Vault RNA: a 100-nucleotide sequence from Notechis scutatus. About the family: This family of RNAs are found as part of the enigmatic vault ribonucleoprotein complex. The complex consists of a major vault protein (MVP), two minor vault proteins (VPARP and TEP1), and several small untranslated RNA molecules. It has been suggested that the vault complex is involved in drug resistance. For this family Rfam cites "Evolution of Vault RNAs" (Stadler et al., Mol Biol Evol, 2009). The family's consensus secondary structure is taken from published work. It is annotated as a non-coding RNA gene. Lineage of the source: Eukaryota > Chordata > Lepidosauria > Elapidae > Notechis.
RNA sequence: GAGUCAAUUUAACCUACAGGUUCCUUUGCAAUAUGGGUAAUUUUUUAUGAAUUGAUAAUUCUUAGCAGUUCAAAUCCUGCAGGUGCUGUCUGGCUUUUUA
Number, nucleotide and partner (000 for none) at each position: 001g000002a095003g094004u093005c092006a091007a000008u000009u000010u000011a000012a084013c083014c082015u081016a000017c000018a000019g078020g077021u000022u000023c000024c000025u074026u073027u072028g071029c000030a000031a000032u000033a000034u000035g000036g000037g000038u000039a000040a000041u000042u000043u000044u000045u000046u000047a000048u000049g000050a000051a000052u000053u000054g000055a000056u000057a000058a000059u000060u000061c000062u000063u000064a000065g000066c000067a000068g000069u000070u000071c028072a027073a026074a025075u000076c000077c020078u019079g000080c000081a015082g014083g013084u012085g000086c000087u000088g000089u000090c000091u006092g005093g004094c003095u002096u000097u000098u000099u000100a000